[Rfam]
RNA sequence: CGGGGAAAGAAGACCCUGUUGAGCUUGACUCUAGUUUGACAUUGUGAAAAGACAUAGAGGGCGUAGAAUAAGUGGGAGCUUCGGCGCCGUUGAAAUACCACUACCUUUAUCGUCUUUUUACUUAUUCGAUGAGACGGAGCUGAGGUUAAUAGCCUCACCUUUUAGAAUUCAAGGUCCUUUACGGGCCGAUCCGGGUCGAAGACAUUGUCAGGUGGGGAGUUUGGCUGGGGCGGCACAUCUGUUAAAAGAUAACGCAGGUGUCCUAAGGGGGACUCAUCGAGAACAGAAAUCUCGAGUGGAACAAAAGGGUAAAAGUCCCCUUGAUUUUGAUUUUCAGUGUGAAUACAAACCAUGAAAGUGUGGCCUAUCGAUCCUUUAGUCCCUCGGAAUUUGAGGCUAGAGGUGCCAGAAAAGUUACCACAGGGAUAACUGGCUUGUGGCAGCCAAGCGUUCAUAGCGACGUUGCUUUUUGAUCCUUCGAUGUCGGCUCUUCCUAUCAUACCGAAGCAGAAUUCGGUAAGCGUUGGAUUGUUCACCCACUAAUAGGGAACGUGAGCUGGGUUUAGACCGUCGUGAGACAGGUUAGUUUUACCCUA
Numbered sequence: 001c002g003g004g005g006a007a008a009g010a011a012g013a014c015c016c017u018g019u020u021g022a023g024c025u026u027g028a029c030u031c032u033a034g035u036u037u038g039a040c041a042u043u044g045u046g047a048a049a050a051g052a053c054a055u056a057g058a059g060g061g062c063g064u065a066g067a068a069u070a071a072g073u074g075g076g077a078g079c080u081u082c083g084g085c086g087c088c089g090u091u092g093a094a095a096u097a098c099c100a101c102u103a104c105c106u107u108u109a110u111c112g113u114c115u116u117u118u119u120a121c122u123u124a125u126u127c128g129a130u131g132a133g134a135c136g137g138a139g140c141u142g143a144g145g146u147u148a149a150u151a152g153c154c155u156c157a158c159c160u161u162u163u164a165g166a167a168u169u170c171a172a173g174g175u176c177c178u179u180u181a182c183g184g185g186c187c188g189a190u191c192c193g194g195g196u197c198g199a200a201g202a203c204a205u206u207g208u209c210a211g212g213u214g215g216g217g218a219g220u221u222u223g224g225c226u227g228g229g230g231c232g233g234c235a236c237a238u239c240u241g242u243u244a245a246a247a248g249a250u251a252a253c254g255c256a257g258g259u260g261u262c263c264u265a266a267g268g269g270g271g272a273c274u275c276a277u278c279g280a281g282a283a284c285a286g287a288a289a290u291c292u293c294g295a296g297u298g299g300a301a302c303a304a305a306a307g308g309g310u311a312a313a314a315g316u317c318c319c320c321u322u323g324a325u326u327u328u329g330a331u332u333u334u335c336a337g338u339g340u341g342a343a344u345a346c347a348a349a350c351c352a353u354g355a356a357a358g359u360g361u362g363g364c365c366u367a368u369c370g371a372u373c374c375u376u377u378a379g380u381c382c383c384u385c386g387g388a389a390u391u392u393g394a395g396g397c398u399a400g401a402g403g404u405g406c407c408a409g410a411a412a413a414g415u416u417a418c419c420a421c422a423g424g425g426a427u428a429a430c431u432g433g434c435u436u437g438u439g440g441c442a443g444c445c446a447a448g449c450g451u452u453c454a455u456a457g458c459g460a461c462g463u464u465g466c467u468u469u470u471u472g473a474u475c476c477u478u479c480g481a482u483g484u485c486g487g488c489u490c491u492u493c494c495u496a497u498c499a500u501a502c503c504g505a506a507g508c509a510g511a512a513u514u515c516g517g518u519a520a521g522c523g524u525u526g527g528a529u530u531g532u533u534c535a536c537c538c539a540c541u542a543a544u545a546g547g548g549a550a551c552g553u554g555a556g557c558u559g560g561g562u563u564u565a566g567a568c569c570g571u572c573g574u575g576a577g578a579c580a581g582g583u584u585a586g587u588u589u590u591a592c593c594c595u596a
Stems, first nucleotide, its partner, number of pairs: 003595003007590002015424004020420002022416005028220004035212007044121010054110007071102005078085002125200005135193004143155005173187005223236001224234003237259006262363002268320006274300002277295006301310002325349003330344004351360003374402006382396004433474001435472001437471001439467006448458002485560001486558004490552001491549005498523001501518006525539003529535001566584004570579003